[Rfam]
RNA sequence: AGGUGUCUCACUGGCUCGUAUCGAAGAUCGGUUGUUCCGAAAUCUUUGUGGAAAGUCCCCGGGCCUCUGUUUGACAGCAAGUGUCCGAUUGUGUGGUCAACUGCGAAACGAGUGAUAGAAAGCUAUAAUAGGGCUGAGAAGGAUUAAGUUCCUGAGCUCAUUAGUUUCUCUACAUUCGAUUUAAUGGCCCAACACUGACAGUUCUCGAAACUGUUCUCAACAGAUAUGCGAGUAGCGUGAUUUAGAUAUCAAAAGCUAAACACGUGAACAGAACGGGGCUUAUGUGUGUUGAUACC
Numbered sequence: 001a002g003g004u005g006u007c008u009c010a011c012u013g014g015c016u017c018g019u020a021u022c023g024a025a026g027a028u029c030g031g032u033u034g035u036u037c038c039g040a041a042a043u044c045u046u047u048g049u050g051g052a053a054a055g056u057c058c059c060c061g062g063g064c065c066u067c068u069g070u071u072u073g074a075c076a077g078c079a080a081g082u083g084u085c086c087g088a089u090u091g092u093g094u095g096g097u098c099a100a101c102u103g104c105g106a107a108a109c110g111a112g113u114g115a116u117a118g119a120a121a122g123c124u125a126u127a128a129u130a131g132g133g134c135u136g137a138g139a140a141g142g143a144u145u146a147a148g149u150u151c152c153u154g155a156g157c158u159c160a161u162u163a164g165u166u167u168c169u170c171u172a173c174a175u176u177c178g179a180u181u182u183a184a185u186g187g188c189c190c191a192a193c194a195c196u197g198a199c200a201g202u203u204c205u206c207g208a209a210a211c212u213g214u215u216c217u218c219a220a221c222a223g224a225u226a227u228g229c230g231a232g233u234a235g236c237g238u239g240a241u242u243u244a245g246a247u248a249u250c251a252a253a254a255g256c257u258a259a260a261c262a263c264g265u266g267a268a269c270a271g272a273a274c275g276g277g278g279c280u281u282a283u284g285u286g287u288g289u290u291g292a293u294a295c296c
Base pairs, nucleotide, nucleotide: 002296003295004294005293006292007291009288010287011286014233015232016231017230018229019228022048023047024046025045026044027043053281054280055279057278058277059276060275073085074084075083076082093104094103095102096101106176107175116172117171118170119169121167122165123164124163125162131159132158133157134156141152142151143150235265236264237263238262239261